[Rfam]
RNA: Lysine riboswitch aptamer
Organism: Bacillus manliponensis
RNA sequence: CUCAAAGAUAGAGGCCGCGAUAAAAAAGAGUAGGCUAUGGGAGAUAAAGUGGUAUCAAUGAUCAUAGUUCGAAAGGAUUUAUCGCCGAAAUAUAUGAAUGUCCAUAUUGUUCAUAUAUUGGGACUGCAUUGAAUAAAUGUAGUACUGUCGUAAGGGUUACUUAUGGAGAGCUAUUGGGAGA
Dot-bracket structure: ......(((((.....((((((((........((((((((.....................))))))))........))))))))...((((((((((((.......))))))))))))((.((((((((.....)))))))).)).(((((((.....)))))))....)))))......
Numbered sequence: 001c002u003c004a005a006a007g008a009u010a011g012a013g014g015c016c017g018c019g020a021u022a023a024a025a026a027a028g029a030g031u032a033g034g035c036u037a038u039g040g041g042a043g044a045u046a047a048a049g050u051g052g053u054a055u056c057a058a059u060g061a062u063c064a065u066a067g068u069u070c071g072a073a074a075g076g077a078u079u080u081a082u083c084g085c086c087g088a089a090a091u092a093u094a095u096g097a098a099u100g101u102c103c104a105u106a107u108u109g110u111u112c113a114u115a116u117a118u119u120g121g122g123a124c125u126g127c128a129u130u131g132a133a134u135a136a137a138u139g140u141a142g143u144a145c146u147g148u149c150g151u152a153a154g155g156g157u158u159a160c161u162u163a164u165g166g167a168g169a170g171c172u173a174u175u176g177g178g179a180g181a
Stems, first nucleotide, its partner, number of pairs: 007175005017085008033069008089119012120146002123143008148166007